[Rfam]
RNA: anti ponA RNA
Organism: Pseudomonas sp. ABC1
RNA sequence: GAAAUUAUCGUCUUCGGCGGAGAGCAGGGCGUCGAUGAAAUCCUGCGGAAUGUCUUCGAAGCGGAUCGGCGAGCGGCGCAUUUCGCCGAACUCGGCGAUCAGCUUGUCAUCGCUGCUGUAGACCCGCAGGGGGAUCUGCAACUGGAUGCUGCGCAGGGCGUCGACGGACGGCAGGCUGGGGCUCAGGUACAGGAAGGCGCCGCUCAGGCAGAGCAGCAGGCCAAAGAACAGGGUGGCGCACGACCAGAGUAAGAACUUCAGAAAACGCAUCAGAGAGUCUUUGAAUUCGGGUGGA
Numbered sequence: 001g002a003a004a005u006u007a008u009c010g011u012c013u014u015c016g017g018c019g020g021a022g023a024g025c026a027g028g029g030c031g032u033c034g035a036u037g038a039a040a041u042c043c044u045g046c047g048g049a050a051u052g053u054c055u056u057c058g059a060a061g062c063g064g065a066u067c068g069g070c071g072a073g074c075g076g077c078g079c080a081u082u083u084c085g086c087c088g089a090a091c092u093c094g095g096c097g098a099u100c101a102g103c104u105u106g107u108c109a110u111c112g113c114u115g116c117u118g119u120a121g122a123c124c125c126g127c128a129g130g131g132g133g134a135u136c137u138g139c140a141a142c143u144g145g146a147u148g149c150u151g152c153g154c155a156g157g158g159c160g161u162c163g164a165c166g167g168a169c170g171g172c173a174g175g176c177u178g179g180g181g182c183u184c185a186g187g188u189a190c191a192g193g194a195a196g197g198c199g200c201c202g203c204u205c206a207g208g209c210a211g212a213g214c215a216g217c218a219g220g221c222c223a224a225a226g227a228a229c230a231g232g233g234u235g236g237c238g239c240a241c242g243a244c245c246a247g248a249g250u251a252a253g254a255a256c257u258u259c260a261g262a263a264a265a266c267g268c269a270u271c272a273g274a275g276a277g278u279c280u281u282u283g284a285a286u287u288c289g290g291g292u293g294g295a
Base pairs, nucleotide, nucleotide: 010172011171012170014168015167017165020162021161024046025045026044027043028042029041047084048083049082050081051080052079054078057075058074061070062069086095087094088093102159103158104157105155106154107153108148109147110146111145115142117140118139119138120137121136122135123133124132125131176291177290179288180287181286183284184283186280187279197268198267199266203261204260206258207257213239214238217235218234221232222231244253